[Rfam]
RNA sequence: GGCACCGGCUGAAUCAGAGAUUGGCUGGUGCAUGAUAAUCACACACUCUUAUUAGGAGAGCAUUAUGUCUCUGACUGCAGAAGCAAAAGCACAAAUCGUUGCUGAUUUUGGUAAAACUGAG
Numbered sequence: 001g002g003c004a005c006c007g008g009c010u011g012a013a014u015c016a017g018a019g020a021u022u023g024g025c026u027g028g029u030g031c032a033u034g035a036u037a038a039u040c041a042c043a044c045a046c047u048c049u050u051a052u053u054a055g056g057a058g059a060g061c062a063u064u065a066u067g068u069c070u071c072u073g074a075c076u077g078c079a080g081a082a083g084c085a086a087a088a089g090c091a092c093a094a095a096u097c098g099u100u101g102c103u104g105a106u107u108u109u110g111g112u113a114a115a116a117c118u119g120a121g
Base pairs, nucleotide, nucleotide: 007026008025009024010023011022012021053074055072056071057070058069

Notes:
This 121-nucleotide sequence from Salinivibrio sp. KP-1 belongs to the Rfam family "Ribosomal S15 leader". Rfam links the family to the GO term regulation of translation, ncRNA-mediated. The E. coli Ribosomal S15 gene 5' UTR can form two alternative structures. One that is a series of three hairpins, The other includes a pseudoknot. This structure causes translational regulation of the S15 protein. The alignment of this family contains only the final two hairpins which are conserved in other species, and also includes the complete region that forms the alternate structures. Taxonomically the source falls in Salinivibrio (Bacteria, Pseudomonadati, Gammaproteobacteria, Vibrionales). Clan: Ribosomal Protein S15 Leader clan. The match comes from Rfam's covariance-model search (80 bits). By type it is a cis-regulatory leader.